Rfam assigns this 253-nucleotide part of an RNA from Candidatus Methanobinarius endosymbioticus to the family "Archaeal large subunit ribosomal RNA". Lineage of the source: Archaea > Methanobacteriota > Methanobacteria > Methanobacteriaceae > Candidatus Methanobinarius.

RNA sequence: AGUAGUCUGAGGGGAAGAUGGCUCCAGUACGAGAGGAACGAGUUGUCGGCGCCUCUGGUCGACCGGUUGUCUGAUAAGGCAUUGCCGGGCAGCUACGCGCUAGACGAUAAAGGCUGAAAGCAUCUAAGCCUGAGGUGUCCCCUGAAAAUAGACUGCUUUAGAACGCGAGUAGAAGACUUGUUUGAUGGGGUAGGGAUGUAAGCUUCGAGGUUUUUCCGAGUUGUUUAGUCCGCUGCUCCCAAUUGUUCGCUUG
Numbered sequence: 001a002g003u004a005g006u007c008u009g010a011g012g013g014g015a016a017g018a019u020g021g022c023u024c025c026a027g028u029a030c031g032a033g034a035g036g037a038a039c040g041a042g043u044u045g046u047c048g049g050c051g052c053c054u055c056u057g058g059u060c061g062a063c064c065g066g067u068u069g070u071c072u073g074a075u076a077a078g079g080c081a082u083u084g085c086c087g088g089g090c091a092g093c094u095a096c097g098c099g100c101u102a103g104a105c106g107a108u109a110a111a112g113g114c115u116g117a118a119a120g121c122a123u124c125u126a127a128g129c130c131u132g133a134g135g136u137g138u139c140c141c142c143u144g145a146a147a148a149u150a151g152a153c154u155g156c157u158u159u160a161g162a163a164c165g166c167g168a169g170u171a172g173a174a175g176a177c178u179u180g181u182u183u184g185a186u187g188g189g190g191u192a193g194g195g196a197u198g199u200a201a202g203c204u205u206c207g208a209g210g211u212u213u214u215u216c217c218g219a220g221u222u223g224u225u226u227a228g229u230c231c232g233c234u235g236c237u238c239c240c241a242a243u244u245g246u247u248c249g250c251u252u253g
Base pairs, nucleotide, nucleotide: 001157002156003155004154005153006152007151008150011143012142013141014140017047018046019045020044021043022042023041024040048101049100050099051098052097056095057094058093063088064087065086066085067084068081069080070079071078072077104138105137106136111131112130113129114128115127161248162247163246164245165181166180167179168178169177186241187240188239189237190236191235192234193233194231195230196229202224203223206220209217